[Rfam]
Shown here is a 117-nucleotide RNA from Streptomyces netropsis, a member of the family "SAM (S-adenosyl methionine) riboswitch aptamer".
RNA sequence: GGUCACGAGUGACAGCGACAUAGGCCCCGGCCCGCUGUCCGGCAACCCUCCUUCCGUGGCGGGGUGCCCCGGGUGAUGACCGGGCCGCAGACAAGAGGUCUGCGGCAAGCGCGGAUC
Numbered sequence: 001g002g003u004c005a006c007g008a009g010u011g012a013c014a015g016c017g018a019c020a021u022a023g024g025c026c027c028c029g030g031c032c033c034g035c036u037g038u039c040c041g042g043c044a045a046c047c048c049u050c051c052u053u054c055c056g057u058g059g060c061g062g063g064g065u066g067c068c069c070c071g072g073g074u075g076a077u078g079a080c081c082g083g084g085c086c087g088c089a090g091a092c093a094a095g096a097g098g099u100c101u102g103c104g105g106c107a108a109g110c111g112c113g114g115a116u117c
Stems, first nucleotide, its partner, number of pairs: 001081004009040001011039006023032002041068003046064003050059002084106009
It scores 113 bits against the family's covariance model. The source organism's lineage runs through Bacteria, Bacillati, Actinomycetota, Actinomycetes and Streptomyces. The literature on the family includes a 2008 paper in RNA by Weinberg et al., "The aptamer core of SAM-IV riboswitches mimics the ligand-binding site of SAM-I riboswitches". From the family's description: SAM-IV is a mRNA element that regulates gene expression via direct sensing of S-adenosylmethionine (SAM or AdoMet). SAM-IV riboswitches share conserved nucleotide positions with the previously described SAM-I riboswitches sequence analysis and molecular recognition experiments suggest that SAM-I and SAM-IV riboswitches share similar ligand binding sites, but have different scaffolds. The family's consensus secondary structure is taken from published work.